[Rfam]
RNA sequence: UCGGUUCCGGUUCACGUCUCACCGCAGGCGCGCGAGCGGCCUGAACUGGCGACCCGGCACC
Numbered sequence: 001u002c003g004g005u006u007c008c009g010g011u012u013c014a015c016g017u018c019u020c021a022c023c024g025c026a027g028g029c030g031c032g033c034g035a036g037c038g039g040c041c042u043g044a045a046c047u048g049g050c051g052a053c054c055c056g057g058c059a060c061c
Stems, first nucleotide, its partner, number of pairs: 003061003007057004015051004021047001
The family of this 61-nucleotide RNA sequence from Mycolicibacterium thermoresistibile is "L31-Actinobacteria ribosomal protein leader". The sequence is in the family's curated seed alignment. The family's RNA type in Rfam is cis-regulatory leader.